[Rfam]
RNA sequence: UUACUCCCUCCGUCCCAUAAUGUAAGACAUUUUUUAAUACUAAUCUCGUGUCAAAAAAUGUCUUACAUUGUGGGAUGGAGGGAGUAC
Numbered sequence: 001u002u003a004c005u006c007c008c009u010c011c012g013u014c015c016c017a018u019a020a021u022g023u024a025a026g027a028c029a030u031u032u033u034u035u036a037a038u039a040c041u042a043a044u045c046u047c048g049u050g051u052c053a054a055a056a057a058a059u060g061u062c063u064u065a066c067a068u069u070g071u072g073g074g075a076u077g078g079a080g081g082g083a084g085u086a087c
Stems, first nucleotide, its partner, number of pairs: 003085003007081005013075005019069017037051004
Dot-bracket structure: ..(((.(((((.(((((.(((((((((((((((((.((((.......)))).))))))))))))))))).))))).))))).)))..
The record is an 87-nucleotide RNA sequence from Triticum aestivum, which matches "MIR1120/MIR1122 microRNA precursor family" in Rfam. Pairs were carried over by alignment from the consensus structure, which was predicted with RNAalifold. Rfam 15.1 lists 44,765 matches to the family in 8 species. The match comes from Rfam's covariance-model search (87 bits). NCBI's taxonomy places the organism under Eukaryota, Streptophytina, Mesangiospermae, Liliopsida, Triticum. A reference for the family is Yao et al. (2007), "Cloning and characterization of microRNAs from wheat (Triticum aestivum L.)", Genome Biol.